The record is a 147-nucleotide RNA sequence from Nitrosomonas sp. Nm51, which matches "Group II catalytic intron D1-D4-7" in Rfam.
A reference for the family is Bonen and Vogel (2001), "The ins and outs of group II introns", Trends Genet.
Pairs were carried over by alignment from the consensus structure.
Lineage of the source: Bacteria > Pseudomonadati > Pseudomonadota > Betaproteobacteria > Nitrosomonas.
From the family's description: Group II introns are found in rRNA, tRNA and mRNA of organelles in fungi, plants and protists, and also in mRNA in bacteria.
The family has 244 seed sequences and 1,296 matches in Rfam 15.1.
RNA sequence: CCAACCGUUCCGUCGGUUGUAGCCUACCUAUGCGUGCAUGACUGGUAACGGUUUUGUGCGAAGCCAUGGGGACAAUGUGUCAGGCCUUUGGCCACAUCAAGACCGCGAGGAUUGAUGGCACCUGCAAGCAUCAAUGCGGGUGAAUGG
Dot-bracket structure: .((((((......))))))........(((((((((((.(((((....))))).))))))....))))).............((((...)))).((((....((....))...))))...((((((........)))))).......